[Rfam]
Background: Glycine riboswitch aptamer: an 88-nucleotide RNA sequence from Sphingomonas sp. FARSPH. Rfam's curators write: This family represents the bacterial glycine riboswitch. Glycine riboswitches usually consist of two metabolite-binding aptamers domains with similar structures in tandem. The aptamers cooperatively bind glycine to regulate the expression of downstream genes. Its family is annotated with glycine biosynthetic process in the Gene Ontology. Taxonomically the source falls in Sphingomonas (Bacteria, Pseudomonadota, Alphaproteobacteria, Sphingomonadaceae).
RNA sequence: GCCGCCGAUCCGGGAGAGACCGGGCAUGACCGGCGCCGAAGGAGCAACCGCCCCGGAAACUCUCAGGCGAAAGGACCAGGUCGGCAUC
Number, nucleotide and partner (000 for none) at each position: 001g000002c000003c000004g000005c000006c083007g082008a081009u080010c079011c000012g077013g076014g000015a000016g000017a000018g000019a000020c033021c032022g031023g030024g000025c000026a000027u000028g000029a000030c023031c022032g021033g020034c000035g068036c067037c066038g064039a063040a000041g000042g062043a061044g060045c000046a000047a000048c056049c055050g000051c000052c000053c000054c000055g049056g048057a000058a000059a000060c044061u043062c042063u039064c038065a000066g037067g036068c035069g000070a000071a000072a000073g000074g000075a000076c013077c012078a000079g010080g009081u008082c007083g006084g000085c000086a000087u000088c000